This 77-nucleotide sequence from Calothrix sp. NIES-3974 belongs to the Rfam family "CyVA-1 RNA". From the family's description: Cyanobacteria, Acidobacteria (1 example), Verrucomicrobia (1 example). The base pairs follow the family's consensus structure, which is taken from published work. By type it is a small RNA. NCBI's taxonomy places the organism under Bacteria, Cyanobacteriota, Cyanophyceae, Calotrichaceae, Calothrix.
[Rfam]
RNA sequence: GCACUGGAUGAAAGUUACGCCGUUGUGUUUCAUUGUUGUAUUUCCAAGGAGAGCGAUGUCAGGAAUGCAAACAGUGC
Numbered sequence: 001g002c003a004c005u006g007g008a009u010g011a012a013a014g015u016u017a018c019g020c021c022g023u024u025g026u027g028u029u030u031c032a033u034u035g036u037u038g039u040a041u042u043u044c045c046a047a048g049g050a051g052a053g054c055g056a057u058g059u060c061a062g063g064a065a066u067g068c069a070a071a072c073a074g075u076g077c
Stems, first nucleotide, its partner, number of pairs: 001077006009032004037069008